RNA sequence: AAUAACCUUAUCGGGAGCUUGAGGAUUCAGGCUGAGAGUGCGGAUAUACCGCUGACCGUUCGAUCUGAUCUAGAUAAUGCUAGCGCAGAGAAUGAUUAGUACACAUUUG
Numbered sequence: 001a002a003u004a005a006c007c008u009u010a011u012c013g014g015g016a017g018c019u020u021g022a023g024g025a026u027u028c029a030g031g032c033u034g035a036g037a038g039u040g041c042g043g044a045u046a047u048a049c050c051g052c053u054g055a056c057c058g059u060u061c062g063a064u065c066u067g068a069u070c071u072a073g074a075u076a077a078u079g080c081u082a083g084c085g086c087a088g089a090g091a092a093u094g095a096u097u098a099g100u101a102c103a104c105a106u107u108u109g
Stems, first nucleotide, its partner, number of pairs: 008095003012058003016053001017032005040052004064089004070083004
A member of the RNA family "TPP riboswitch aptamer (THI element)" from Paenibacillus sp. N3.4, 109 nucleotides long. The family's consensus secondary structure is taken from published work. The source organism's lineage runs through Bacteria, Bacillati, Bacillota, Caryophanales and Paenibacillus.